[Rfam]
Shown here is a 151-nucleotide RNA sequence from Paenibacillus popilliae, a member of the family "SAM riboswitch aptamer (S box leader)". It scores 83 bits against the family's covariance model. The base pairs follow the family's consensus structure, which is taken from published work.
RNA sequence: UUCUUAUCAAGAGUGGCGGAGGGACAGGCCCUGUGAAGCCCGGCAACCGAUCCUGCAACCCGUAUUUGCUCGCAGCAUACCGCUGCUGCAAGAUUGCAGGGUGUCAAUGGUGCUAAUUCCUUCAGAACGGAUAAGUUCUGGCAGAUAAGAA
Numbered sequence: 001u002u003c004u005u006a007u008c009a010a011g012a013g014u015g016g017c018g019g020a021g022g023g024a025c026a027g028g029c030c031c032u033g034u035g036a037a038g039c040c041c042g043g044c045a046a047c048c049g050a051u052c053c054u055g056c057a058a059c060c061c062g063u064a065u066u067u068g069c070u071c072g073c074a075g076c077a078u079a080c081c082g083c084u085g086c087u088g089c090a091a092g093a094u095u096g097c098a099g100g101g102u103g104u105c106a107a108u109g110g111u112g113c114u115a116a117u118u119c120c121u122u123c124a125g126a127a128c129g130g131a132u133a134a135g136u137u138c139u140g141g142c143a144g145a146u147a148a149g150a151a
Stems, first nucleotide, its partner, number of pairs: 001151008013041001015040003021031003026121003042114004047110002118143001123140006